Annotation:
A member of the RNA family "Mitochondrial DNA control region secondary structure A" from Colobus angolensis, 106 nucleotides long. The base pairs follow the family's consensus structure, which is taken from published work. A search with the family's covariance model found it, with a score of 78 bits. The literature on the family includes a 2008 paper in Mol Biol Evol by Pereira et al., "Evidence for variable selective pressures at a large secondary structure of the human mitochondrial DNA control region".
[Rfam]
RNA sequence: GUAUUCUAUGGUGUGCAAACUUUAAAGUGCAACUUAAGUACUACUUUAUUUUAACAUGCUCCUAUGUAAUUCGUGCAUUACUGCUAGCCAACAUGAAUAUUAUAUA
Dot-bracket structure: ....(.(((((...(((.....(.((((...)))).)((..(...........)...))....(((((.....)))))...)))....)..)))).).........